The family of this 37-nucleotide RNA from Leptospira interrogans is "CRISPR RNA direct repeat element".
[Rfam]
RNA sequence: ACUUACAAAAAUCGGGAUGCCGUUAGGCGUUGAGCAC
Dot-bracket structure: ...............((((((....))))))......